[Rfam]
Background: The record is a 108-nucleotide RNA sequence from Barrientosiimonas humi, which matches "TPP riboswitch aptamer (THI element)" in Rfam. The base pairs follow the family's consensus structure, which is taken from published work. A search with the family's covariance model found it, with a score of 56 bits.
RNA sequence: CACAUCCAUCGCGGGAGUCCCAGGAGGGGCUGAGAGGGCGCUGCUGCCGCGCCGACCGUCACACCUGAUGCGGGUCAUGCCGCCGAAGGGAGACUCCGAUGCCGUCGU
Numbered sequence: 001c002a003c004a005u006c007c008a009u010c011g012c013g014g015g016a017g018u019c020c021c022a023g024g025a026g027g028g029g030c031u032g033a034g035a036g037g038g039c040g041c042u043g044c045u046g047c048c049g050c051g052c053c054g055a056c057c058g059u060c061a062c063a064c065c066u067g068a069u070g071c072g073g074g075u076c077a078u079g080c081c082g083c084c085g086a087a088g089g090g091a092g093a094c095u096c097c098g099a100u101g102c103c104g105u106c107g108u
Base pairs, nucleotide, nucleotide: 009093010092011059012058013057014056017030018029019028020027021026037053038052039051040050041049064089065088066087070083071082072081073080